Annotation: This 128-nucleotide RNA from Desulfamplus magnetovallimortis belongs to the Rfam family "Group II catalytic intron D1-D4-7". The literature on the family includes a 2001 paper in Trends Genet by Bonen and Vogel, "The ins and outs of group II introns". Its family is annotated with Group II intron splicing in the Gene Ontology. Pairs were carried over by alignment from the consensus structure.
[Rfam]
RNA sequence: CCUGAUGUUCUGCCAUCAGUAUCCUACCCACUGAAUAAAGAGCGUGGGGACAGAGGAAGCCUCAUCUUCGGAUGGUCACCAAACCGUGAGGGGCGGUGGCGACUGCGAGCACCAAUGCGGUCGGGAGC
Dot-bracket structure: .((((((......)))))).......((((((......)....))))).............(((((....))))).((((...((....))...))))...((((((........)))))).......
From the family's description: Group II introns are found in rRNA, tRNA and mRNA of organelles in fungi, plants and protists, and also in mRNA in bacteria.